[Rfam]
RNA sequence: GGCAAUAAGUUUUAUUAAGAAUAGAGGUAGUGGACCCGGGGGCAGUACUCGGCACCUCCACCAAGCUAUGAAGUAGUUGUGUUUUACGGGGGUGACAAAGUUUCGACACACCUAAUAAAAUAAUAAAUUUUGCCCGAUAUGAUUCCGUCGUUUUAAGCAGUAUUUAUAAAAAUUGUUUAAAUGGGUCAAAAAAAGAAAUGCAAAUGAUAACAUAAAGCAUUCUACAGACGGUAAUUUCCAAUUGAGUGCAUUAGCAGCUUAA
Numbered sequence: 001g002g003c004a005a006u007a008a009g010u011u012u013u014a015u016u017a018a019g020a021a022u023a024g025a026g027g028u029a030g031u032g033g034a035c036c037c038g039g040g041g042g043c044a045g046u047a048c049u050c051g052g053c054a055c056c057u058c059c060a061c062c063a064a065g066c067u068a069u070g071a072a073g074u075a076g077u078u079g080u081g082u083u084u085u086a087c088g089g090g091g092g093u094g095a096c097a098a099a100g101u102u103u104c105g106a107c108a109c110a111c112c113u114a115a116u117a118a119a120a121u122a123a124u125a126a127a128u129u130u131u132g133c134c135c136g137a138u139a140u141g142a143u144u145c146c147g148u149c150g151u152u153u154u155a156a157g158c159a160g161u162a163u164u165u166a167u168a169a170a171a172a173u174u175g176u177u178u179a180a181a182u183g184g185g186u187c188a189a190a191a192a193a194a195g196a197a198a199u200g201c202a203a204a205u206g207a208u209a210a211c212a213u214a215a216a217g218c219a220u221u222c223u224a225c226a227g228a229c230g231g232u233a234a235u236u237u238c239c240a241a242u243u244g245a246g247u248g249c250a251u252u253a254g255c256a257g258c259u260u261a262a
Stems, first nucleotide, its partner, number of pairs: 001134005014124004026112003030109003036052005053094007135150004